[Rfam]
RNA: Plastid-clpP 5UTR RNA
RNA sequence: AAUUUUAUUGGUAGGAACAAAGAGAAACGUAUUUACUCUAUACUUGACAAAUACCAAUACAUAAUGGGG
Numbered sequence: 001a002a003u004u005u006u007a008u009u010g011g012u013a014g015g016a017a018c019a020a021a022g023a024g025a026a027a028c029g030u031a032u033u034u035a036c037u038c039u040a041u042a043c044u045u046g047a048c049a050a051a052u053a054c055c056a057a058u059a060c061a062u063a064a065u066g067g068g069g
Stems, first nucleotide, its partner, number of pairs: 003022002006019001008017002043068003052059002